[Rfam]
RNA: c-di-AMP riboswitch aptamer (ydaO/yuaA leader)
Organism: Streptomyces netropsis
RNA sequence: CGUGCGCCUUCGCCGAAUCCCGCGGGCACAGCACCAUCUGCACCACCAGCGACAACCGGGAACCGGGGAACCACCAAACUUGGGGUGAAUCGGGCCGUACUCCGGCCUGUAGGAGACCUUCCUGUUCCGAACCCGUCAGCUAACCCGGUAGGCGAGAAGGAAGGAAAGG
Numbered sequence: 001c002g003u004g005c006g007c008c009u010u011c012g013c014c015g016a017a018u019c020c021c022g023c024g025g026g027c028a029c030a031g032c033a034c035c036a037u038c039u040g041c042a043c044c045a046c047c048a049g050c051g052a053c054a055a056c057c058g059g060g061a062a063c064c065g066g067g068g069a070a071c072c073a074c075c076a077a078a079c080u081u082g083g084g085g086u087g088a089a090u091c092g093g094g095c096c097g098u099a100c101u102c103c104g105g106c107c108u109g110u111a112g113g114a115g116a117c118c119u120u121c122c123u124g125u126u127c128c129g130a131a132c133c134c135g136u137c138a139g140c141u142a143a144c145c146c147g148g149u150a151g152g153c154g155a156g157a158a159g160g161a162a163g164g165a166a167a168g169g
Stems, first nucleotide, its partner, number of pairs: 011154004018061005062149006072082002083134003091109004112128004